RNA sequence: CCCAGCCCUUGCGGGCUGGGCUGAUAUGGAGCGGGCCUUCGGCCCU
Numbered sequence: 001c002c003c004a005g006c007c008c009u010u011g012c013g014g015g016c017u018g019g020g021c022u023g024a025u026a027u028g029g030a031g032c033g034g035g036c037c038u039u040c041g042g043c044c045c046u
Stems, first nucleotide, its partner, number of pairs: 001020008033045005

Rfam assigns this 46-nucleotide sequence from Luteolibacter ambystomatis to the family "Acido-Lenti-1 RNA".
The family's RNA type in Rfam is small RNA.
The organism belongs to Luteolibacter, within Bacteria.